Flavivirus DB element: a 72-nucleotide sequence from Orthoflavivirus denguei. The literature on the family includes a 2005 paper in J Virol by Chiu et al., "Control of translation by the 5'- and 3'-terminal regions of the dengue virus genome". It is one of the family's seed sequences. Lineage of the source: Viruses > Riboviria > Amarillovirales > Euflavivirus > Dengue virus.

[Rfam]
RNA sequence: GGAGGCCACAAACCAUGGAAGCUGUACGCAUGGCGUAGUGGACUAGCGGUUAGAGGAGACCCCUCCCUUGCA
Numbered sequence: 001g002g003a004g005g006c007c008a009c010a011a012a013c014c015a016u017g018g019a020a021g022c023u024g025u026a027c028g029c030a031u032g033g034c035g036u037a038g039u040g041g042a043c044u045a046g047c048g049g050u051u052a053g054a055g056g057a058g059a060c061c062c063c064u065c066c067c068u069u070g071c072a
Stems, first nucleotide, its partner, number of pairs: 001066005006041002013033005048061004